[Rfam]
RNA sequence: CGGCGAGGCUUCCUAACCGAUAUCGACGGAGGCACUCGAUCACGCUGUGGGACGCAUGAUAGUGUUGUCCUUAGACGCUUGUCGUCGAAAGUGUGGUGUGAGGAUGGGUUCGAUGCCCA
Numbered sequence: 001c002g003g004c005g006a007g008g009c010u011u012c013c014u015a016a017c018c019g020a021u022a023u024c025g026a027c028g029g030a031g032g033c034a035c036u037c038g039a040u041c042a043c044g045c046u047g048u049g050g051g052a053c054g055c056a057u058g059a060u061a062g063u064g065u066u067g068u069c070c071u072u073a074g075a076c077g078c079u080u081g082u083c084g085u086c087g088a089a090a091g092u093g094u095g096g097u098g099u100g101a102g103g104a105u106g107g108g109u110u111c112g113a114u115g116c117c118c119a
Stems, first nucleotide, its partner, number of pairs: 001019003008033006035102004039097008049071005054065003074086004105119005
Overview: Shown here is a 119-nucleotide RNA from Bacillus sp. DNRA2, a member of the family "epsC RNA". The family's consensus secondary structure is taken from published work. The source organism's lineage runs through Bacteria, Bacilli, Caryophanales, Bacillaceae and Bacillus. The match comes from Rfam's covariance-model search (104 bits).